[Rfam]
RNA sequence: AUAUUACAGUGUCAAAAGGUCUUUUCCACCUGUGCUUGCACAAAGGUGGAAAAAUGACCUUGGGACACGCCCACAAUAUGAGCAAAAAAGUGGAGCGUAAGCUUCACGAUAUGCGAAUAUUGUGGUAGGAUUGUGGGAGUGCGAAGCACGUAACAAUCCGGUAAUAA
Dot-bracket structure: .((((....((((..((((((.((((((((((((....))))..)))))).))..))))))..))))...((((.((((..(((.....(((((((....)))))))....)))..))).)))))..(((((((....((((...))))...)))))))...)))).
Numbered sequence: 001a002u003a004u005u006a007c008a009g010u011g012u013c014a015a016a017a018g019g020u021c022u023u024u025u026c027c028a029c030c031u032g033u034g035c036u037u038g039c040a041c042a043a044a045g046g047u048g049g050a051a052a053a054a055u056g057a058c059c060u061u062g063g064g065a066c067a068c069g070c071c072c073a074c075a076a077u078a079u080g081a082g083c084a085a086a087a088a089a090g091u092g093g094a095g096c097g098u099a100a101g102c103u104u105c106a107c108g109a110u111a112u113g114c115g116a117a118u119a120u121u122g123u124g125g126u127a128g129g130a131u132u133g134u135g136g137g138a139g140u141g142c143g144a145a146g147c148a149c150g151u152a153a154c155a156a157u158c159c160g161g162u163a164a165u166a167a
Stems, first nucleotide, its partner, number of pairs: 002166004010067004016061006023053002025050006031042004071125004076121001077119003082114003090107007128159007139149004
Shown here is a 167-nucleotide RNA from Eubacterium ventriosum, a member of the family "Clostridiales-1 RNA". Rfam's curators put it in the seed alignment. The base pairs follow the family's consensus structure, which is taken from published work.